[Rfam]
RNA sequence: GGGCGGAUAAGUCGUUUUUGCCUCAUCCGCCAUUCUGUGCACAAUGCCUGAUGCGACGCUGGCGCGUCUUAUCAUGCC
Numbered sequence: 001g002g003g004c005g006g007a008u009a010a011g012u013c014g015u016u017u018u019u020g021c022c023u024c025a026u027c028c029g030c031c032a033u034u035c036u037g038u039g040c041a042c043a044a045u046g047c048c049u050g051a052u053g054c055g056a057c058g059c060u061g062g063c064g065c066g067u068c069u070u071a072u073c074a075u076g077c078c
Stems, first nucleotide, its partner, number of pairs: 002031007011022001013020002046077002049074005055068005